[Rfam]
The family of this 175-nucleotide RNA from Paractinoplanes atraurantiacus is "c-di-AMP riboswitch aptamer (ydaO/yuaA leader)".

RNA sequence: GCGGGCGGAACGCCGAAUCCUGCCGCUGCCCGGCGGAACACAUCAUUACGGCAUGGAGCGGGGGACCCGAGUUCUUCGGCGCUUUGGCGCGCCUCGGGGUGAAGCCGCGCACGCGCGGCCGGGCACCUCAGCCCGAACCCGACAGCUGACCUCGUAGGCGUGGAGGGUUCUCUGU
Numbered sequence: 001g002c003g004g005g006c007g008g009a010a011c012g013c014c015g016a017a018u019c020c021u022g023c024c025g026c027u028g029c030c031c032g033g034c035g036g037a038a039c040a041c042a043u044c045a046u047u048a049c050g051g052c053a054u055g056g057a058g059c060g061g062g063g064g065a066c067c068c069g070a071g072u073u074c075u076u077c078g079g080c081g082c083u084u085u086g087g088c089g090c091g092c093c094u095c096g097g098g099g100u101g102a103a104g105c106c107g108c109g110c111a112c113g114c115g116c117g118g119c120c121g122g123g124c125a126c127c128u129c130a131g132c133c134c135g136a137a138c139c140c141g142a143c144a145g146c147u148g149a150c151c152u153c154g155u156a157g158g159c160g161u162g163g164a165g166g167g168u169u170c171u172c173u174g175u
Stems, first nucleotide, its partner, number of pairs: 011160004018057003058155006068096004097140003105118004121134004
Background:
The match comes from Rfam's covariance-model search (66 bits). Lineage of the source: Bacteria > Actinomycetes > Micromonosporales > Micromonosporaceae > Paractinoplanes.